[Rfam]
RNA sequence: CAACGAAAUAAAUCUCUUUCGGGAUUUGUGAAAUGCCCUGCGGGCGUGAAAUACGCCUGCAGCGUGUGAAAUCGCUG
Number, nucleotide and partner (000 for none) at each position: 001c000002a000003a000004c000005g000006a000007a000008a029009u028010a027011a026012a025013u024014c023015u022016c000017u000018u000019u000020c000021g000022g015023g014024a013025u012026u011027u010028g009029u008030g000031a000032a000033a047034u046035g045036c044037c043038c000039u000040g000041c000042g000043g037044g036045c035046g034047u033048g000049a000050a000051a067052u066053a065054c064055g063056c062057c000058u000059g000060c000061a000062g056063c055064g054065u053066g052067u051068g000069a000070a000071a000072u000073c000074g000075c000076u000077g000
RNA: Gut-1 RNA